[Rfam]
RNA sequence: AUAAAACUUUAGGGGUGUCUUUGAAAAACUCAAAGGCUGAGAUGAGACCCUAUGAACCUGAUGCGGCUCAUACCGUCGAAGGGAAAAGUUGGUAGCAAAUG
Numbered sequence: 001a002u003a004a005a006a007c008u009u010u011a012g013g014g015g016u017g018u019c020u021u022u023g024a025a026a027a028a029c030u031c032a033a034a035g036g037c038u039g040a041g042a043u044g045a046g047a048c049c050c051u052a053u054g055a056a057c058c059u060g061a062u063g064c065g066g067c068u069c070a071u072a073c074c075g076u077c078g079a080a081g082g083g084a085a086a087a088g089u090u091g092g093u094a095g096c097a098a099a100u101g
Base pairs, nucleotide, nucleotide: 006089007088008087009086010085011051012050013049014048016045017037018036019035020034021033022032023031024030057082058081059080063076064075065074066073
Annotation
A member of the RNA family "TPP riboswitch aptamer (THI element)", 101 nucleotides long. The match comes from Rfam's covariance-model search (73 bits).